[Rfam]
RNA: Enterococcus sRNA 84
Organism: Enterococcus alcedinis
RNA sequence: AACCAACAAUAACCUUUUUAUUUUUCAUUUACUCCUAACCAGAGUAAACUCCUUUUAAUCACUCGACCUAACCAAUCGAGUGGUUUUUUU
Numbered sequence: 001a002a003c004c005a006a007c008a009a010u011a012a013c014c015u016u017u018u019u020a021u022u023u024u025u026c027a028u029u030u031a032c033u034c035c036u037a038a039c040c041a042g043a044g045u046a047a048a049c050u051c052c053u054u055u056u057a058a059u060c061a062c063u064c065g066a067c068c069u070a071a072c073c074a075a076u077c078g079a080g081u082g083g084u085u086u087u088u089u090u
Stems, first nucleotide, its partner, number of pairs: 028048007060082007069074001